[Rfam]
RNA sequence: AUAAGCGGGCAAGAGAGAGUCCGGUGUCUCUGAGUCCUUGUAGAAUCAGAGAGGGAAAUCGAUCUGGCCAAGAUAUAUCGUUUCAGUCGUCCUUUUUCUUGGUUGGCGAUCUGAUUGUUACUUGUCCACAA
Dot-bracket structure: ......((((..(((((.......).))))...))))............................((.((((....((((.....((((((..((.....))..)))))).)))).....)))).))....
Numbered sequence: 001a002u003a004a005g006c007g008g009g010c011a012a013g014a015g016a017g018a019g020u021c022c023g024g025u026g027u028c029u030c031u032g033a034g035u036c037c038u039u040g041u042a043g044a045a046u047c048a049g050a051g052a053g054g055g056a057a058a059u060c061g062a063u064c065u066g067g068c069c070a071a072g073a074u075a076u077a078u079c080g081u082u083u084c085a086g087u088c089g090u091c092c093u094u095u096u097u098c099u100u101g102g103u104u105g106g107c108g109a110u111c112u113g114a115u116u117g118u119u120a121c122u123u124g125u126c127c128a129c130a131a
Stems, first nucleotide, its partner, number of pairs: 007037004013030004017025001066127002069124004077115004086110006094102002